[Rfam]
RNA sequence: AUCUUAUCAAGAGAGAUUGAGGGACAGGCCCGGUGAUAUCUCAGCAACCUGCCAAUGCAAGGUGCUAAAUCCUGCAGAUUAUAUCUGGAAGAUAAGCA
Numbered sequence: 001a002u003c004u005u006a007u008c009a010a011g012a013g014a015g016a017u018u019g020a021g022g023g024a025c026a027g028g029c030c031c032g033g034u035g036a037u038a039u040c041u042c043a044g045c046a047a048c049c050u051g052c053c054a055a056u057g058c059a060a061g062g063u064g065c066u067a068a069a070u071c072c073u074g075c076a077g078a079u080u081a082u083a084u085c086u087g088g089a090a091g092a093u094a095a096g097c098a
Base pairs, nucleotide, nucleotide: 003096004095005094006093007092008091013042014041015040016039017038021031022030023029025074026073027072028071043066044065045064046063048062049061050059051058052057070090075087076086077085078084079083
Rfam assigns this 98-nucleotide sequence from Dethiosulfatibacter aminovorans to the family "SAM riboswitch aptamer (S box leader)". Rfam's curators write: The SAM riboswitch is found upstream of a number of genes which code for proteins involved in methionine or cysteine biosynthesis in Gram-positive bacteria. The family's consensus secondary structure is taken from published work.